[Rfam]
RNA: Fumarate/nitrate reductase regulator sRNA
Organism: Providencia rustigianii
RNA sequence: GCAGGUGAAUGCAACGUUGAGCGAUGAACGUUGUGCUCCAUAAUUGUAGUUUUUCUCAUAUUGAGUUCUUAUACAGAAUAAUUGACCACUGUAAUGCCGAUGUCUUUUACAUCGGCUUUU
Numbered sequence: 001g002c003a004g005g006u007g008a009a010u011g012c013a014a015c016g017u018u019g020a021g022c023g024a025u026g027a028a029c030g031u032u033g034u035g036c037u038c039c040a041u042a043a044u045u046g047u048a049g050u051u052u053u054u055c056u057c058a059u060a061u062u063g064a065g066u067u068c069u070u071a072u073a074c075a076g077a078a079u080a081a082u083u084g085a086c087c088a089c090u091g092u093a094a095u096g097c098c099g100a101u102g103u104c105u106u107u108u109a110c111a112u113c114g115g116c117u118u119u120u
Stems, first nucleotide, its partner, number of pairs: 001047004007038002010035009065086003070078001072076001096116008